[Rfam]
RNA: Small nucleolar RNA SNORA69
RNA sequence: AAAGCAGGCUGCAAUUACAGUGCUUCAUUCUGUGGGAGGACUGCCAUUAACCUGCUGAGAGUAAAUGCUGCUGUGAAUUUACUGGCUUCACCCUGCUUGUGGUGAUGGGCAUUCUUUGUGGCAGCUACAAAA
Numbered sequence: 001a002a003a004g005c006a007g008g009c010u011g012c013a014a015u016u017a018c019a020g021u022g023c024u025u026c027a028u029u030c031u032g033u034g035g036g037a038g039g040a041c042u043g044c045c046a047u048u049a050a051c052c053u054g055c056u057g058a059g060a061g062u063a064a065a066u067g068c069u070g071c072u073g074u075g076a077a078u079u080u081a082c083u084g085g086c087u088u089c090a091c092c093c094u095g096c097u098u099g100u101g102g103u104g105a106u107g108g109g110c111a112u113u114c115u116u117u118g119u120g121g122c123a124g125c126u127a128c129a130a131a132a
Stems, first nucleotide, its partner, number of pairs: 003056006018043004023038004067125010083109001086107001088105005094099001